[Rfam]
RNA: Protozoan signal recognition particle RNA
Organism: Theileria annulata
RNA sequence: AUUGCUGUAACUCCGGAGGCACGAGUGUGAACAUGAGGGGGUGUAUUAGUUCGCGGGUUAGCCGCGCCUGUCUGCUGGACGUCUGAGUCGAUUGCGGGCUCUAGUGUAAGCUUGAGCUCGCGGCCGGUGCGGUUCGGCGGAACGCUCCAGGCUGGUAACAGAGCAGAGAAAAGCCGACGCUUUGACUGGCCAGCAGACCGCAGGUGUAUCUCAACCCGU
Numbered sequence: 001a002u003u004g005c006u007g008u009a010a011c012u013c014c015g016g017a018g019g020c021a022c023g024a025g026u027g028u029g030a031a032c033a034u035g036a037g038g039g040g041g042u043g044u045a046u047u048a049g050u051u052c053g054c055g056g057g058u059u060a061g062c063c064g065c066g067c068c069u070g071u072c073u074g075c076u077g078g079a080c081g082u083c084u085g086a087g088u089c090g091a092u093u094g095c096g097g098g099c100u101c102u103a104g105u106g107u108a109a110g111c112u113u114g115a116g117c118u119c120g121c122g123g124c125c126g127g128u129g130c131g132g133u134u135c136g137g138c139g140g141a142a143c144g145c146u147c148c149a150g151g152c153u154g155g156u157a158a159c160a161g162a163g164c165a166g167a168g169a170a171a172a173g174c175c176g177a178c179g180c181u182u183u184g185a186c187u188g189g190c191c192a193g194c195a196g197a198c199c200g201c202a203g204g205u206g207u208a209u210c211u212c213a214a215c216c217c218g219u
Stems, first nucleotide, its partner, number of pairs: 011018002053219006064207008072196007081186003085182004089126002092123010103112003128132001134177005145168003152161003